[Rfam]
RNA: Erse small RNA
Organism: Corythaeola cristata
RNA sequence: CCGGCAGAGCUGCUGGCCCCGUGGACAGGCGAUAUUGCCGCUGAGGGGAUCGGUAAAGUGCUGCGCGGCGGCGCCUCCUUGCUGAAGAAGGGUUUUGUACGCCAGCAGCGCUAUGCCGCAGACGUGCUGACCGAGGAGUGGCGCAUGGCGCCAGGACCGCUGGAAGCAGCAUGGUUCGCAGAAGAGACCGCCGCGGUUGAGCGCGCGGUUGAUGCACUGACAAAACGGCUUGAAAAACUGGAGGGCAAAUGA
Numbered sequence: 001c002c003g004g005c006a007g008a009g010c011u012g013c014u015g016g017c018c019c020c021g022u023g024g025a026c027a028g029g030c031g032a033u034a035u036u037g038c039c040g041c042u043g044a045g046g047g048g049a050u051c052g053g054u055a056a057a058g059u060g061c062u063g064c065g066c067g068g069c070g071g072c073g074c075c076u077c078c079u080u081g082c083u084g085a086a087g088a089a090g091g092g093u094u095u096u097g098u099a100c101g102c103c104a105g106c107a108g109c110g111c112u113a114u115g116c117c118g119c120a121g122a123c124g125u126g127c128u129g130a131c132c133g134a135g136g137a138g139u140g141g142c143g144c145a146u147g148g149c150g151c152c153a154g155g156a157c158c159g160c161u162g163g164a165a166g167c168a169g170c171a172u173g174g175u176u177c178g179c180a181g182a183a184g185a186g187a188c189c190g191c192c193g194c195g196g197u198u199g200a201g202c203g204c205g206c207g208g209u210u211g212a213u214g215c216a217c218u219g220a221c222a223a224a225a226c227g228g229c230u231u232g233a234a235a236a237a238c239u240g241g242a243g244g245g246c247a248a249a250u251g252a
Stems, first nucleotide, its partner, number of pairs: 001244002005240001008080002012054005019047002022044001028039004063074004084215001086213001089210001092206002095203001100143005115128001117126003148179003152174001154172001157169001159167003186198005219229001221228001
Dot-bracket structure: ((..(..((..(((((..((.(.....((((....))))....).))..)))))........((((....))))....))...(.(..(..((.(....(((((..........(.(((....))).)..........)))))....(((.(.(..(.(((...))).)..).)..)))......(((((...)))))....).))...)..).)...(.(......))..........)..))........